[Rfam]
RNA sequence: CUCUUAUUACGAGAGGUGGAGGGACUGGCCCGAUGAAACCCAGCAACCAACUUUUACCAAAAAGGAAAGGUGCUAAUUCCUGCAAACAUUCGUUUGAAAAAUAAGAG
Numbered sequence: 001c002u003c004u005u006a007u008u009a010c011g012a013g014a015g016g017u018g019g020a021g022g023g024a025c026u027g028g029c030c031c032g033a034u035g036a037a038a039c040c041c042a043g044c045a046a047c048c049a050a051c052u053u054u055u056a057c058c059a060a061a062a063a064g065g066a067a068a069g070g071u072g073c074u075a076a077u078u079c080c081u082g083c084a085a086a087c088a089u090u091c092g093u094u095u096g097a098a099a100a101a102u103a104a105g106a107g
Base pairs, nucleotide, nucleotide: 001107002106003105004104005103006102007101008100013041015040016039017038021031022030023029025082027080028079042074043073044072045071047070048069051064052063078099083096084095085094086093087092

Rfam assigns this 107-nucleotide RNA sequence from Saliterribacillus persicus to the family "SAM riboswitch aptamer (S box leader)". The family's consensus secondary structure is taken from published work. Rfam links the family to the GO term regulation of gene expression. A search with the family's covariance model found it, with a score of 91 bits.